[Rfam]
Background:
The family of this 99-nucleotide RNA from Nosocomiicoccus massiliensis is "Guanidine-I riboswitch aptamer". A search with the family's covariance model found it, with a score of 89 bits. Rfam links the family to the GO term regulation of gene expression. A reference for the family is Trachman RJ 3rd and Ferre-D'Amare (2021), "An uncommon [K(+)(Mg(2+))2] metal ion triad imparts stability and selectivity to the Guanidine-I riboswitch", RNA.
RNA sequence: UAAAAUGUUUUCUAGGGUUCCGUAACUUUUAAGUUAGCCUGGUCCGAGAGAAAACUCACAGAUUUUUCUGUGUCACGGAAGGAUAAAAGCCUGGGAGAA
Dot-bracket structure: ......((((((..((...((((((((....)))))..).)).))....)))))).(((((......))))).(.[...(((.......))).)..]..